[Rfam]
RNA sequence: GGCCCGAAUUUGGAGCGGAGUAGAUUAGUAGGAUCGGCUGACCCUACUAAACUACUCUGCUCCAGAUUUGUGUCC
Dot-bracket structure: (((.(((((.(((((((((((((.((((((.(.((....)).).)))))).))))))))))))).))))).))).
Numbered sequence: 001g002g003c004c005c006g007a008a009u010u011u012g013g014a015g016c017g018g019a020g021u022a023g024a025u026u027a028g029u030a031g032g033a034u035c036g037g038c039u040g041a042c043c044c045u046a047c048u049a050a051a052c053u054a055c056u057c058u059g060c061u062c063c064a065g066a067u068u069u070g071u072g073u074c075c
Stems, first nucleotide, its partner, number of pairs: 001074003005070005011064013025050006032043001034041002
Source information: A member of the RNA family "mir-5928 microRNA precursor family" from Haemonchus placei, 75 nucleotides long. The family's consensus secondary structure was predicted with RNAalifold. It scores 77 bits against the family's covariance model. Rfam 15.1 lists 1,672 matches to the family in 12 species. Gene Ontology terms of the family: RISC complex and miRNA-mediated post-transcriptional gene silencing.